The record is a 243-nucleotide sequence from Orientia tsutsugamushi, which matches "Group II catalytic intron D1-D4-6" in Rfam. Its family is annotated with Group II intron splicing in the Gene Ontology. Taxonomically the source falls in Orientia tsutsugamushi (Bacteria, Pseudomonadati, Alphaproteobacteria, Rickettsiaceae). Rfam 15.1 lists 1,617 matches to the family in 661 species. The match comes from Rfam's covariance-model search (97 bits). The literature on the family includes a 2001 paper in Trends Genet by Bonen and Vogel, "The ins and outs of group II introns".
RNA sequence: AAAGUCCAGUUAUGGAAGGAGAAGCUAGAUCCACCAUAUAGCGAGUCUUGUGCUGCUGAAGGUAACGACAGUAGUAAAGCGUAGACAGUGAAACAUUCGAGCCGAAACCAAAUGGUGAACGUGAUAGCCCUGAAAGUGAGAUGUAGUGGAAGCCGAUAUGUUCUAGCACAUAGUAGGCAAAAGAAGAUUGGAGGUCAAACUAGUAAAAAUCCAAAAAUUUUCAACCACCGGGGUCGCAGGCGU
Numbered sequence: 001a002a003a004g005u006c007c008a009g010u011u012a013u014g015g016a017a018g019g020a021g022a023a024g025c026u027a028g029a030u031c032c033a034c035c036a037u038a039u040a041g042c043g044a045g046u047c048u049u050g051u052g053c054u055g056c057u058g059a060a061g062g063u064a065a066c067g068a069c070a071g072u073a074g075u076a077a078a079g080c081g082u083a084g085a086c087a088g089u090g091a092a093a094c095a096u097u098c099g100a101g102c103c104g105a106a107a108c109c110a111a112a113u114g115g116u117g118a119a120c121g122u123g124a125u126a127g128c129c130c131u132g133a134a135a136g137u138g139a140g141a142u143g144u145a146g147u148g149g150a151a152g153c154c155g156a157u158a159u160g161u162u163c164u165a166g167c168a169c170a171u172a173g174u175a176g177g178c179a180a181a182a183g184a185a186g187a188u189u190g191g192a193g194g195u196c197a198a199a200c201u202a203g204u205a206a207a208a209a210u211c212c213a214a215a216a217a218u219u220u221u222c223a224a225c226c227a228c229c230g231g232g233g234u235c236g237c238a239g240g241c242g243u
Stems, first nucleotide, its partner, number of pairs: 012037004018032003039091001041089002045086004049081002051076008061066001127234006146228004152178003157172004183222007